[Rfam]
This 62-nucleotide sequence from Prolemur simus belongs to the Rfam family "U7 small nuclear RNA".
The match comes from Rfam's covariance-model search (68 bits).
The literature on the family includes a 1994 paper in Nucleic Acids Res by Spycher et al., "3' end processing of mouse histone pre-mRNA: evidence for additional base-pairing between U7 snRNA and pre-mRNA".
Animal histone pre-mRNAs are spliced by a different mechanism than nuclear pre-mRNAs and self-splicing introns.
RNA sequence: UAGUGUUACAGCUCUUUAUGAAUUUGUCUAGCAGGUUUUCCAGUCCUCACUGGAAGACCCCC
Numbered sequence: 001u002a003g004u005g006u007u008a009c010a011g012c013u014c015u016u017u018a019u020g021a022a023u024u025u026g027u028c029u030a031g032c033a034g035g036u037u038u039u040c041c042a043g044u045c046c047u048c049a050c051u052g053g054a055a056g057a058c059c060c061c062c
Stems, first nucleotide, its partner, number of pairs: 034059011